Source information:
This 97-nucleotide RNA from Macleaya cordata belongs to the Rfam family "Small nucleolar RNA snoR31/Z110/Z27". The family's consensus secondary structure was predicted with PFOLD. The source organism's lineage runs through Eukaryota, Tracheophyta, Spermatophyta, Magnoliopsida and Macleaya. About the family: This family contains several related snoRNAs including R31, Z27 and Z110. Rfam 15.1 lists 571 matches to the family in 198 species. Its family is annotated with nucleolus and RNA processing in the Gene Ontology.
RNA sequence: GUCAUCAAGUGAUGAGAUCUGAAAGUAUUAUCUUAGGACACCUUCCUACACAGCUAUUGCUGUGGAUGAGAACAAUAUUUCUAUUUCUGAUGAUGAU
Numbered sequence: 001g002u003c004a005u006c007a008a009g010u011g012a013u014g015a016g017a018u019c020u021g022a023a024a025g026u027a028u029u030a031u032c033u034u035a036g037g038a039c040a041c042c043u044u045c046c047u048a049c050a051c052a053g054c055u056a057u058u059g060c061u062g063u064g065g066a067u068g069a070g071a072a073c074a075a076u077a078u079u080u081c082u083a084u085u086u087c088u089g090a091u092g093a094u095g096a097u
Stems, first nucleotide, its partner, number of pairs: 001097007046053002
Dot-bracket structure: (((((((......................................((....)).....................................)))))))